[Rfam]
RNA: Small nucleolar RNA SNORA79
Organism: Sinocyclocheilus anshuiensis
RNA sequence: UGAUGAUUGUUCCUCCUGCUGCUCUGAGCUCAGGCAGCUCAGGAUUUUAUAUCAUCACAGAGAAUCAGAGUCUACUUCACGCGGUGUGUGCCGACCCGACGGUCUCCUGUGGCCACGCUGCACAUUGCGGGACUCUACAGCU
Numbered sequence: 001u002g003a004u005g006a007u008u009g010u011u012c013c014u015c016c017u018g019c020u021g022c023u024c025u026g027a028g029c030u031c032a033g034g035c036a037g038c039u040c041a042g043g044a045u046u047u048u049a050u051a052u053c054a055u056c057a058c059a060g061a062g063a064a065u066c067a068g069a070g071u072c073u074a075c076u077u078c079a080c081g082c083g084g085u086g087u088g089u090g091c092c093g094a095c096c097c098g099a100c101g102g103u104c105u106c107c108u109g110u111g112g113c114c115a116c117g118c119u120g121c122a123c124a125u126u127g128c129g130g131g132a133c134u135c136u137a138c139a140g141c142u
Stems, first nucleotide, its partner, number of pairs: 001057007014044005020036004069134005081121008094110002098106001